[Rfam]
RNA sequence: AAUAUUAGCUAGGGGCGCCUUUUUAGGCUGAGAGGAUUUAUUCCGACCCUUUGAACUUGAUGUAGUUAAUACUACCGUAGGGAAGCAGUGCAUUGUUUAA
Dot-bracket structure: .....(.(((((((..((((....))))......((.....))...)))).....((((..((((......))))..))))..))).)............

This 100-nucleotide sequence from Clostridium sp. CT7 belongs to the Rfam family "TPP riboswitch aptamer (THI element)". The source organism's lineage runs through Bacteria, Bacillati, Eubacteriales, Clostridiaceae and Clostridium.